[Rfam]
RNA sequence: AUCAUUCGUGAGGCGAGAUGAUCGUUUCAUACCUCCCUGUUGGACUUCGCCGGGCCUCGUGCCCGGCUUUUCUU
Numbered sequence: 001a002u003c004a005u006u007c008g009u010g011a012g013g014c015g016a017g018a019u020g021a022u023c024g025u026u027u028c029a030u031a032c033c034u035c036c037c038u039g040u041u042g043g044a045c046u047u048c049g050c051c052g053g054g055c056c057u058c059g060u061g062c063c064c065g066g067c068u069u070u071u072c073u074u
Stems, first nucleotide, its partner, number of pairs: 008030007049067007
Description:
This 74-nucleotide sequence from Pseudooctadecabacter jejudonensis belongs to the Rfam family "Singlet oxygen resistance RNA X". For this family Rfam cites "Regulation of a polyamine transporter by the conserved 3' UTR-derived sRNA SorX confers resistance to singlet oxygen and organic hydroperoxides in Rhodobacter sphaeroides" (Peng et al., RNA Biol, 2016). Lineage of the source: Bacteria > Pseudomonadati > Rhodobacterales > Paracoccaceae > Pseudooctadecabacter. SorX (RSs2461)like SorY is a singlet oxygen induced sRNA that counteracts oxidative stress by targeting mRNA for a transporter in Rhodobacter. It also has an impact on resistance against organic hydroperoxides. It targets SD sequence of potA mRNA via an aSD sequence. The aSD sequence and some neighbouring nucleotides are identical to the one of SorY (targets takP mRNA). Pairs were carried over by alignment from the consensus structure.